The family of this 70-nucleotide RNA sequence from Dendrobium catenatum is "Plastid-clpP 5UTR RNA". The source organism's lineage runs through Eukaryota, Magnoliopsida, Mesangiospermae, Liliopsida and Dendrobium. Rfam 15.1 lists 2,105 matches to the family in 526 species. A reference for the family is Richter et al. (2023), "Retrograde signaling in plants: A critical review focusing on the GUN pathway and beyond", Plant Commun. Plastid clpP is a non-coding RNA (ncRNA) recognised in plastids. It was found in the prime untranslated region (5UTR) of a protease complex subunit (clpP) in plastids, suggesting a posible cis-regulatory function. It scores 71 bits against the family's covariance model. The family's RNA type in Rfam is cis-regulatory element.
[Rfam]
RNA sequence: CUUUCUAUUUAGAAGAACAAAGAGAAACAGAUCUUCUUCUAUACCCGAUAAGUACCAAUACGCAAUGGGA
Numbered sequence: 001c002u003u004u005c006u007a008u009u010u011a012g013a014a015g016a017a018c019a020a021a022g023a024g025a026a027a028c029a030g031a032u033c034u035u036c037u038u039c040u041a042u043a044c045c046c047g048a049u050a051a052g053u054a055c056c057a058a059u060a061c062g063c064a065a066u067g068g069g070a
Base pairs, nucleotide, nucleotide: 003022004021006019008017009016010015044069045068046067052061053060054059